[Rfam]
RNA: SAM (S-adenosyl methionine) riboswitch aptamer
Organism: Planotetraspora thailandica
RNA sequence: GGUUAAGAGCUCCGGCCGUAAGCCUCCCGGCUGGCCGAAGCGGCAACCCUCGCUCCGCGGCGGGGUGCCUCCGGGAGAAAACCUGGCGGCUACUUGCCGCAAGCGCGGAUC
Numbered sequence: 001g002g003u004u005a006a007g008a009g010c011u012c013c014g015g016c017c018g019u020a021a022g023c024c025u026c027c028c029g030g031c032u033g034g035c036c037g038a039a040g041c042g043g044c045a046a047c048c049c050u051c052g053c054u055c056c057g058c059g060g061c062g063g064g065g066u067g068c069c070u071c072c073g074g075g076a077g078a079a080a081a082c083c084u085g086g087c088g089g090c091u092a093c094u095u096g097c098c099g100c101a102a103g104c105g106c107g108g109a110u111c
Stems, first nucleotide, its partner, number of pairs: 001083004009041001011039001013037004021032002042069003047065003051060001086100005